FMN riboswitch aptamer (RFN element): a 155-nucleotide sequence from Rhizobium leguminosarum. Pairs were carried over by alignment from the consensus structure, which is taken from published work.

RNA sequence: UUCUGUUCUCAGGGCGGGGUGAAACUCCCCACCGGCGGUAAGAGUUUCGGCUCGAGCCCGCGAGCGCCUUCCCUCGUGUCCAAGCGGGGGAAGGGUCAACAGAUCCGGUGCGAUUCCGGAGCCGACGGUUAAAGUCCGGAUGGAAGAGAAUGAGU
Numbered sequence: 001u002u003c004u005g006u007u008c009u010c011a012g013g014g015c016g017g018g019g020u021g022a023a024a025c026u027c028c029c030c031a032c033c034g035g036c037g038g039u040a041a042g043a044g045u046u047u048c049g050g051c052u053c054g055a056g057c058c059c060g061c062g063a064g065c066g067c068c069u070u071c072c073c074u075c076g077u078g079u080c081c082a083a084g085c086g087g088g089g090g091a092a093g094g095g096u097c098a099a100c101a102g103a104u105c106c107g108g109u110g111c112g113a114u115u116c117c118g119g120a121g122c123c124g125a126c127g128g129u130u131a132a133a134g135u136c137c138g139g140a141u142g143g144a145a146g147a148g149a150a151u152g153a154g155u
Stems, first nucleotide, its partner, number of pairs: 004152007017029003031135002033124002035061004056122002064100001104120005126138003
Background:
NCBI's taxonomy places the organism under Bacteria, Pseudomonadota, Alphaproteobacteria, Rhizobiaceae, Rhizobium leguminosarum.